[Rfam]
RNA sequence: CAGCCCGGGUUUCGUGAGGCCUCGGUCCGCUCGGCUAUCGCUCGCCUGGUGCAUCUUCCCCGGUACCAGGACGCGACGGGCGGGCGGGGACCUGACGAGAUCCGGGAUCGGGG
Numbered sequence: 001c002a003g004c005c006c007g008g009g010u011u012u013c014g015u016g017a018g019g020c021c022u023c024g025g026u027c028c029g030c031u032c033g034g035c036u037a038u039c040g041c042u043c044g045c046c047u048g049g050u051g052c053a054u055c056u057u058c059c060c061c062g063g064u065a066c067c068a069g070g071a072c073g074c075g076a077c078g079g080g081c082g083g084g085c086g087g088g089g090a091c092c093u094g095a096c097g098a099g100a101u102c103c104g105g106g107a108u109c110g111g112g113g
Stems, first nucleotide, its partner, number of pairs: 010100006018092002021089003025085009038076004045070008

Background
mraW RNA: a 113-nucleotide RNA from Saccharopolyspora thermophila. NCBI's taxonomy places the organism under Bacteria, Actinomycetota, Actinomycetes, Pseudonocardiaceae, Saccharopolyspora. Pairs were carried over by alignment from the consensus structure, which is taken from published work. Rfam classes the family as a cis-regulatory element.